This 120-nucleotide sequence belongs to the Rfam family "Ribosomal S15 leader". The E. coli Ribosomal S15 gene 5' UTR can form two alternative structures. One that is a series of three hairpins, The other includes a pseudoknot. This structure causes translational regulation of the S15 protein. The alignment of this family contains only the final two hairpins which are conserved in other species, and also includes the complete region that forms the alternate structures. Clan: Ribosomal Protein S15 Leader clan. The sequence is in the family's curated seed alignment.
RNA sequence: GUUGGCCGGGUUAGCAUAGCGCCACCCGGCACCCUUUCUUUCUUUUAAAUCUGGAGUUUUAAAAUGUCUCUAAGCGUUGAAGCUAAAGCAAAAAUCGUUUCUGAGUUUGGUCGUGGCGAA
Numbered sequence: 001g002u003u004g005g006c007c008g009g010g011u012u013a014g015c016a017u018a019g020c021g022c023c024a025c026c027c028g029g030c031a032c033c034c035u036u037u038c039u040u041u042c043u044u045u046u047a048a049a050u051c052u053g054g055a056g057u058u059u060u061a062a063a064a065u066g067u068c069u070c071u072a073a074g075c076g077u078u079g080a081a082g083c084u085a086a087a088g089c090a091a092a093a094a095u096c097g098u099u100u101c102u103g104a105g106u107u108u109g110g111u112c113g114u115g116g117c118g119a120a
Stems, first nucleotide, its partner, number of pairs: 007028005050074001052072005